This 92-nucleotide RNA sequence from Elaeis guineensis belongs to the Rfam family "Small nucleolar RNA snoR109".
The base pairs follow the family's consensus structure, which was predicted with WAR.
Rfam 15.1 lists 680 matches to the family in 220 species.
[Rfam]
RNA sequence: CGAUUGUAGCUAUAUUAACAAAGAAAAGAGGGAAAAAAACUGGUCGGGUUGCCCUUACCAUGGGCAACCCGCUUACCGAGCUUCCCACAGUA
Numbered sequence: 001c002g003a004u005u006g007u008a009g010c011u012a013u014a015u016u017a018a019c020a021a022a023g024a025a026a027a028g029a030g031g032g033a034a035a036a037a038a039a040c041u042g043g044u045c046g047g048g049u050u051g052c053c054c055u056u057a058c059c060a061u062g063g064g065c066a067a068c069c070c071g072c073u074u075a076c077c078g079a080g081c082u083u084c085c086c087a088c089a090g091u092a
Stems, first nucleotide, its partner, number of pairs: 030086005042073003046069001048068007